[Rfam]
RNA sequence: GAGUGUUACAGCUGUUUUAGAAUUUGUCUGUCAGGCUUCCAGUCCUUAUUGGAAACACCCCA
Numbered sequence: 001g002a003g004u005g006u007u008a009c010a011g012c013u014g015u016u017u018u019a020g021a022a023u024u025u026g027u028c029u030g031u032c033a034g035g036c037u038u039c040c041a042g043u044c045c046u047u048a049u050u051g052g053a054a055a056c057a058c059c060c061c062a
Stems, first nucleotide, its partner, number of pairs: 034059002037054007
RNA: U7 small nuclear RNA
Organism: Crocuta crocuta